[Rfam]
The record is a 137-nucleotide RNA sequence from Mesorhizobium sp. L-8-10, which matches "Alphaproteobacterial sRNA ar35" in Rfam.

RNA sequence: AACCGCAACGGCAAGAGCGCGGCCGAGAACCUCCAGGCUGCGUAACGGGAUUGCGCUUCUGAUUCUUGACCACGGAUGUACUGGCACUGAUCAUCGAGGCGCAUUGGAGAGGCCGGGUUCGCCCGGCCUUUUUGCUU
Numbered sequence: 001a002a003c004c005g006c007a008a009c010g011g012c013a014a015g016a017g018c019g020c021g022g023c024c025g026a027g028a029a030c031c032u033c034c035a036g037g038c039u040g041c042g043u044a045a046c047g048g049g050a051u052u053g054c055g056c057u058u059c060u061g062a063u064u065c066u067u068g069a070c071c072a073c074g075g076a077u078g079u080a081c082u083g084g085c086a087c088u089g090a091u092c093a094u095c096g097a098g099g100c101g102c103a104u105u106g107g108a109g110a111g112g113c114c115g116g117g118u119u120c121g122c123c124c125g126g127c128c129u130u131u132u133u134g135c136u137u
Stems, first nucleotide, its partner, number of pairs: 003048003008043003017038002021034001053102006061092004067086002070084003103136001105134012
Background: It is annotated as a small RNA. A reference for the family is del Val et al. (2012), "A survey of sRNA families in alpha-proteobacteria", RNA Biol. The match comes from Rfam's covariance-model search (57 bits). The source organism's lineage runs through Bacteria, Pseudomonadati, Alphaproteobacteria, Hyphomicrobiales and Mesorhizobium.